[Rfam]
RNA sequence: UGAAUCUAAGGCGAUGGAGCUCGCCAUAACCGCCUUACAAACGAGCCGCUGACCCUCGCUAAGGCUGAUAGCUCCUACCCAAGG
Numbered sequence: 001u002g003a004a005u006c007u008a009a010g011g012c013g014a015u016g017g018a019g020c021u022c023g024c025c026a027u028a029a030c031c032g033c034c035u036u037a038c039a040a041a042c043g044a045g046c047c048g049c050u051g052a053c054c055c056u057c058g059c060u061a062a063g064g065c066u067g068a069u070a071g072c073u074c075c076u077a078c079c080c081a082a083g084g
Base pairs, nucleotide, nucleotide: 010025011024012023013022016075017074018073019072020071021070032065033064034063035062036061037060
Rfam assigns this 84-nucleotide sequence from Meiothermus granaticius to the family "Fluoride riboswitch aptamer (crcB RNA motif)". NCBI's taxonomy places the organism under Bacteria, Thermotogati, Deinococcota, Deinococci, Meiothermus granaticius.